[Rfam]
RNA: Small nucleolar RNA SNORD10
Organism: Hucho hucho
RNA sequence: GCUUUAUGAGAGUUGUGCGUGUCAACUGAUCCCAGAAUCCCCUGGGGCUCCCAGUGGCCUGGGUUGGUGUUCUGUCAGCUGGUUGUUACUGGGCCUCGGGGCUCUUGGGGGUAUGAGCUGACAGUAGCCCUGAAAAC
Numbered sequence: 001g002c003u004u005u006a007u008g009a010g011a012g013u014u015g016u017g018c019g020u021g022u023c024a025a026c027u028g029a030u031c032c033c034a035g036a037a038u039c040c041c042c043u044g045g046g047g048c049u050c051c052c053a054g055u056g057g058c059c060u061g062g063g064u065u066g067g068u069g070u071u072c073u074g075u076c077a078g079c080u081g082g083u084u085g086u087u088a089c090u091g092g093g094c095c096u097c098g099g100g101g102c103u104c105u106u107g108g109g110g111g112u113a114u115g116a117g118c119u120g121a122c123a124g125u126a127g128c129c130c131u132g133a134a135a136a137c
Stems, first nucleotide, its partner, number of pairs: 001137001003135002040101011
Dot-bracket structure: (.((...................................(((((((((((........................................)))))))))))................................)).)